Annotation: Shown here is a 363-nucleotide RNA sequence from Tepidibacillus sp. HK-1, a member of the family "transfer-messenger RNA". Its family is annotated with RNA catabolic process in the Gene Ontology. The source organism's lineage runs through Bacteria, Bacilli, Caryophanales, Bacillaceae and Tepidibacillus. The family's consensus secondary structure is taken from published work. By type it is a non-coding RNA gene. Rfam describes the family as follows. Bacterial tmRNA, also known as 10Sa RNA or SsrA, is named for its dual tRNA and mRNA-like properties.
RNA sequence: GGGGGCGUUUUGGAUUCGACGGGGAUAGUUCGAGCAUCAGUAGCGAGUCGAGGGGCAGCGGCCUCGUUAAAACGCGAAAGCCAAUAAUAACUGGCAAAACUAACAAUAACUUCGCAUUAGCUGCUUAAUUCAGCUUGCGGCUCUACCACUCCAUCGCCCAUGUGGCGUGACUAGGGCUCAACUUUAGUGGGAUACGCGGUUCACCUUCCGUCUGUAGGUGGCCGAAGAGACCAAUCAGACUAGCUUAUUCGAACGUUUGUUACUUGGCAGUCGGAUAAGCGAAUCCAAAUCAAGUAACUGCACUCGGAGAAGCUGAUGUGGCGUUAUUUUCGGACAGGGGUUCGAUUCCCCUCGCCUCCACCA
Numbered sequence: 001g002g003g004g005g006c007g008u009u010u011u012g013g014a015u016u017c018g019a020c021g022g023g024g025a026u027a028g029u030u031c032g033a034g035c036a037u038c039a040g041u042a043g044c045g046a047g048u049c050g051a052g053g054g055g056c057a058g059c060g061g062c063c064u065c066g067u068u069a070a071a072a073c074g075c076g077a078a079a080g081c082c083a084a085u086a087a088u089a090a091c092u093g094g095c096a097a098a099a100c101u102a103a104c105a106a107u108a109a110c111u112u113c114g115c116a117u118u119a120g121c122u123g124c125u126u127a128a129u130u131c132a133g134c135u136u137g138c139g140g141c142u143c144u145a146c147c148a149c150u151c152c153a154u155c156g157c158c159c160a161u162g163u164g165g166c167g168u169g170a171c172u173a174g175g176g177c178u179c180a181a182c183u184u185u186a187g188u189g190g191g192a193u194a195c196g197c198g199g200u201u202c203a204c205c206u207u208c209c210g211u212c213u214g215u216a217g218g219u220g221g222c223c224g225a226a227g228a229g230a231c232c233a234a235u236c237a238g239a240c241u242a243g244c245u246u247a248u249u250c251g252a253a254c255g256u257u258u259g260u261u262a263c264u265u266g267g268c269a270g271u272c273g274g275a276u277a278a279g280c281g282a283a284u285c286c287a288a289a290u291c292a293a294g295u296a297a298c299u300g301c302a303c304u305c306g307g308a309g310a311a312g313c314u315g316a317u318g319u320g321g322c323g324u325u326a327u328u329u330u331c332g333g334a335c336a337g338g339g340g341u342u343c344g345a346u347u348c349c350c351c352u353c354g355c356c357u358c359c360a361c362c363a
Stems, first nucleotide, its partner, number of pairs: 001359007020332010034319008044306005049066005058075003117137001119135005140177006147169003151165004157191005197224003201221005210240005243280010255268003259298004336352005